[Rfam]
The record is a 337-nucleotide sequence from Muribaculum sp. An287, which matches "Bacterial RNase P class A" in Rfam.
Nucleotides: 337
Base pairs, nucleotide, nucleotide: 001333002332003331004330005329006328007327008326010324011322012300013299014298015297016296017295018294020043021042022041023040024039025038026037027036048320049319050318052317053316054315055314056313057227058226059225060224064260065259066258067257069223070222071221072220073219074088075087076086077085078084089104091102092101093100094099105218106217110216111215112214113213114212126159127158128155129154130153132152133151134150135149136148137147167186168185169184170183171182172181188209189208190207191206192205194203195202196201231281232280233279234278242271243270244269245268246267251265252264253263254262255261
Number, partner (000 for none) and nucleotide at each position: 001333a002332a003331g004330g005329c006328g007327g008326g009000a010324c011322g012300a013299u014298c015297u016296a017295u018294c019000g020043c021042u022041g023040c024039c025038g026037g027036g028000c029000g030000c031000u032000g033000a034000a035000a036027c037026c038025c039024g040023g041022c042021a043020g044000a045000g046000g047000a048320a049319a050318g051000u052317c053316c054315g055314g056313a057227c058226a059225g060224g061000a062000c063000a064260g065259g066258g067257c068000a069223c070222c071221g072220c073219a074088c075087u076086g077085u078084g079000g080000a081000a082000a083000g084078c085077a086076c087075a088074g089104g090000u091102a092101g093100a094099c095000g096000g097000a098000a099094g100093u101092u102091u103000a104089c105218g106217u107000g108000c109000a110216a111215c112214g113213u114212a115000g116000a117000a118000g119000a120000a121000a122000a123000c124000a125000a126159c127158c128155g129154c130153c131000g132152g133151c134150a135149g136148g137147c138000c139000c140000u141000u142000u143000g144000g145000g146000a147137g148136c149135c150134u151133g152132c153130g154129g155128u156000a157000a158127g159126g160000g161000u162000g163000a164000g165000a166000a167186c168185a169184c170183g171182g172181a173000g174000g175000u176000a177000a178000g179000a180000u181172u182171c183170c184169g185168u186167g187000a188209u189208u190207c191206c192205g193000u194203a195202u196201g197000g198000c199000g200000a201196c202195a203194u204000c205192c206191g207190g208189a209188a210000u211000g212114u213113a214112c215111g216110u217106a218105c219073u220072g221071c222070g223069g224060c225059c226058u227057g228000c229000a230000a231281u232280g233279c234278c235000a236000a237000a238000u239000a240000u241000a242271c243270u244269g245268a246267c247000a248000c249000c250000a251265a252264g253263g254262g255261c256000u257067g258066c259065c260064c261255g262254u263253c264252c265251u266000u267246g268245u269244c270243a271242g272000g273000g274000g275000g276000u277000a278234g279233g280232c281231a282000g283000c284000a285000u286000a287000g288000a289000u290000a291000a292000a293000u294018g295017a296016u297015a298014g299013a300012u301000u302000u303000a304000a305000a306000a307000a308000c309000a310000g311000a312000a313056u314055c315054c316053g317052g318050c319049u320048u321000a322011c323000g324010g325000c326008c327007c328006c329005g330004c331003c332002u333001u334000u335000u336000u337000u
A search with the family's covariance model found it, with a score of 198 bits. From the family's description: Ribonuclease P (RNase P) is a ubiquitous endoribonuclease, found in archaea, bacteria and eukarya as well as chloroplasts and mitochondria. Its best characterised activity is the generation of mature 5'-ends of tRNAs by cleaving the 5'-leader elements of precursor-tRNAs.